[Rfam]
Nucleotides: 076
Base pairs, nucleotide, nucleotide: 003073004072005071006070007069010066011065012064015061017059018058019057020056021055024052025051026050027049028048029047
Number, partner (000 for none) and nucleotide at each position: 001000c002000u003073g004072u005071g006070g007069a008000a009000a010066c011065c012064c013000g014000u015061a016000g017059a018058u019057c020056c021055g022000a023000a024052c025051u026050u027049g028048u029047g030000c031000u032000g033000u034000c035000u036000u037000a038000u039000u040000u041000a042000c043000u044000u045000g046000u047029u048028a049027c050026a051025a052024g053000a054000a055021c056020g057019g058018a059017u060000g061015u062000a063000u064012g065011g066010g067000a068000u069007u070006c071005u072004g073003c074000c075000g076000u

This 76-nucleotide sequence from Anopheles darlingi belongs to the Rfam family "mir-10 microRNA precursor family". The family has 36 seed sequences and 3,853 matches in Rfam 15.1. Gene Ontology terms of the family: RISC complex and miRNA-mediated post-transcriptional gene silencing. A reference for the family is Lee and Ambros (2001), "An extensive class of small RNAs in Caenorhabditis elegans", Science.